[Rfam]
RNA: Histidine operon leader
RNA sequence: CCAUCAUCACCACACCUGAUUAUCUUUCAGGCGUGAUUGUAUGUUUGGAAGAUAAUAAAAUAUCUUCCGAGUGUAAUAAAAAUCAGUGUAAAAGCAAUAAAUACCCCUCGGAAGGCAAUUUUCGAGGGGUUUUCUUU
Number, nucleotide and partner (000 for none) at each position: 001c000002c000003a000004u000005c000006a000007u000008c043009a042010c000011c035012a034013c033014a000015c031016c030017u029018g028019a027020u000021u000022a000023u000024c000025u000026u000027u019028c018029a017030g016031g015032c000033g013034u012035g011036a000037u000038u000039g000040u000041a000042u009043g008044u070045u069046u000047g068048g067049a066050a065051g064052a063053u000054a000055a000056u000057a000058a000059a000060a000061u000062a000063u052064c051065u050066u049067c048068c047069g045070a044071g000072u000073g000074u000075a000076a000077u000078a000079a000080a000081a000082a000083u000084c000085a000086g000087u000088g000089u000090a000091a000092a000093a000094g000095c000096a000097a000098u000099a000100a133101a132102u000103a130104c129105c128106c127107c126108u125109c124110g123111g122112a121113a120114g119115g000116c000117a000118a000119u114120u113121u112122u111123c110124g109125a108126g107127g106128g105129g104130u103131u000132u101133u100134c000135u000136u000137u000